[Rfam]
RNA sequence: GCCCGGGGACGACCCCGGGCCGUCGAUGUCCAACGGGGACGACCCCA
Number, nucleotide and partner (000 for none) at each position: 001g020002c019003c018004c017005g016006g015007g014008g013009a000010c000011g000012a000013c008014c007015c006016c005017g004018g003019g002020c001021c000022g000023u000024c000025g000026a000027u000028g000029u000030c000031c000032a000033a000034c000035g046036g045037g044038g043039a000040c000041g000042a000043c038044c037045c036046c035047a000
Shown here is a 47-nucleotide RNA from Burkholderia thailandensis, a member of the family "Guanidine-II riboswitch aptamer (mini-ykkC)".
Simpler in structure and has fewer highly conserved nucleotide positions than the ykkC-yxkD leader. Despite this each of its two stem-loop structures directly bind free guanidine. Therefore, mini-ykkC RNA motif represents a distinct class of guanidine-sensing RNAs.
Pairs were carried over by alignment from the consensus structure, which is taken from published work.
The organism belongs to Burkholderia thailandensis, within Bacteria.